[Rfam]
RNA sequence: AGUAAGAUGAAACUUCAUACCCUGUUUCCAUGUCUACAGCCAUGUCUAUGGGCUCUGGAGUUGGCACGUAGGUGUGGGCCUCCU
Number, nucleotide and partner (000 for none) at each position: 001a084002g083003u000004a081005a000006g079007a000008u077009g000010a000011a000012a073013c072014u071015u070016c000017a000018u066019a000020c000021c064022c063023u000024g062025u000026u060027u059028c058029c000030a000031u000032g053033u052034c051035u050036a049037c000038a047039g046040c000041c000042a000043u000044g000045u000046c039047u038048a000049u036050g035051g034052g033053c032054u000055c000056u000057g000058g028059a027060g026061u000062u024063g022064g021065c000066a018067c000068g000069u000070a015071g014072g013073u012074g000075u000076g000077g008078g000079c006080c000081u004082c000083c002084u001